mir-245 microRNA precursor family: an 84-nucleotide RNA from Caenorhabditis remanei. Taxonomically the source falls in Caenorhabditis (Eukaryota, Eumetazoa, Ecdysozoa, Rhabditomorpha). It is one of the family's seed sequences.
[Rfam]
RNA sequence: UCAAUGUCGAAGAGCUGCUUGCAAGGUACCUAAUUGUUUGCACAUUUCUCAAUUGGUCCCCUCCAAGUAGCUCUAUUGCAUUGU
Numbered sequence: 001u002c003a004a005u006g007u008c009g010a011a012g013a014g015c016u017g018c019u020u021g022c023a024a025g026g027u028a029c030c031u032a033a034u035u036g037u038u039u040g041c042a043c044a045u046u047u048c049u050c051a052a053u054u055g056g057u058c059c060c061c062u063c064c065a066a067g068u069a070g071c072u073c074u075a076u077u078g079c080a081u082u083g084u
Base pairs, nucleotide, nucleotide: 011074012073013072014071015070016069017068018067019066020065021064025060026059028057029056030055032054033053034052035051036050

Rfam 15.1 lists 10 matches to the family in 8 species.